[Rfam]
RNA sequence: GAAGUCAGCCAGACCGCCGCUGGUGCAAUCUGGGAAACCAGGCACUGGAGGAACGUCCGGACUGCACAGGGCAGCGUAGGAGGUAACACCUCUCCACCGUGAGGUGAGGAUCAGAGCAACAGAGACGAGUCGCAGCGGGGCAACCUGCUGCGGGUGAAACGGGCAAUCUCUACGCGCAGCAAUACCAAAUAGGCACACGCUGACGGGGCCCCCCGAGUGUGCGGGUAGGUAGCACCGAGCCGGUGGGGCGACCCCCGGCCCAGAUUAAUGGCGGUCACACCGCGGGUAACCGCGGGCGCACAGAAUCCGGCUUAUCGGCUGACUUCACAC
Numbered sequence: 001g002a003a004g005u006c007a008g009c010c011a012g013a014c015c016g017c018c019g020c021u022g023g024u025g026c027a028a029u030c031u032g033g034g035a036a037a038c039c040a041g042g043c044a045c046u047g048g049a050g051g052a053a054c055g056u057c058c059g060g061a062c063u064g065c066a067c068a069g070g071g072c073a074g075c076g077u078a079g080g081a082g083g084u085a086a087c088a089c090c091u092c093u094c095c096a097c098c099g100u101g102a103g104g105u106g107a108g109g110a111u112c113a114g115a116g117c118a119a120c121a122g123a124g125a126c127g128a129g130u131c132g133c134a135g136c137g138g139g140g141c142a143a144c145c146u147g148c149u150g151c152g153g154g155u156g157a158a159a160c161g162g163g164c165a166a167u168c169u170c171u172a173c174g175c176g177c178a179g180c181a182a183u184a185c186c187a188a189a190u191a192g193g194c195a196c197a198c199g200c201u202g203a204c205g206g207g208g209c210c211c212c213c214c215g216a217g218u219g220u221g222c223g224g225g226u227a228g229g230u231a232g233c234a235c236c237g238a239g240c241c242g243g244u245g246g247g248g249c250g251a252c253c254c255c256c257g258g259c260c261c262a263g264a265u266u267a268a269u270g271g272c273g274g275u276c277a278c279a280c281c282g283c284g285g286g287u288a289a290c291c292g293c294g295g296g297c298g299c300a301c302a303g304a305a306u307c308c309g310g311c312u313u314a315u316c317g318g319c320u321g322a323c324u325u326c327a328c329a330c
Stems, first nucleotide, its partner, number of pairs: 001326010011315001012276007020048007053313001055311001057310005062179004069210002074175005079093005094108001095106004109170002114168002116164002131152009183231004193222006204215004239259005245254003

The record is a 330-nucleotide RNA from Curvibacter sp. PAE-UM, which matches "Bacterial RNase P class A" in Rfam. For this family Rfam cites "Ribonuclease P: unity and diversity in a tRNA processing ribozyme" (Frank and Pace, Annu Rev Biochem, 1998). Its family is annotated with ribonuclease P activity, tRNA processing and dimeric ribonuclease P complex in the Gene Ontology. The organism belongs to Curvibacter, within Bacteria. The base pairs follow the family's consensus structure, which is taken from published work.